[Rfam]
RNA sequence: CUCGAGAACCCAUCGACCCCAUAACGGCAGGAGCGGGGGACCCAGGUAAGUCGCCGAUCCGGACACCGCGCCGGAACGGCUUGGGGUGAAGUCGUGCCCUCUGCACCGAGGACACGACCGGGCACCUCCCCGCCCGAACCCGACAGCUCACCUCGCAGGCGUAGGAGAGGAAUA
Numbered sequence: 001c002u003c004g005a006g007a008a009c010c011c012a013u014c015g016a017c018c019c020c021a022u023a024a025c026g027g028c029a030g031g032a033g034c035g036g037g038g039g040a041c042c043c044a045g046g047u048a049a050g051u052c053g054c055c056g057a058u059c060c061g062g063a064c065a066c067c068g069c070g071c072c073g074g075a076a077c078g079g080c081u082u083g084g085g086g087u088g089a090a091g092u093c094g095u096g097c098c099c100u101c102u103g104c105a106c107c108g109a110g111g112a113c114a115c116g117a118c119c120g121g122g123c124a125c126c127u128c129c130c131c132g133c134c135c136g137a138a139c140c141c142g143a144c145a146g147c148u149c150a151c152c153u154c155g156c157a158g159g160c161g162u163a164g165g166a167g168a169g170g171a172a173u174a
Stems, first nucleotide, its partner, number of pairs: 001031002033156006043083005084141003092117004120135004
Dot-bracket structure: ((...........................)).((((((....(((((...............................)))))(((.....((((..................))))..((((........))))...))).........))))))..................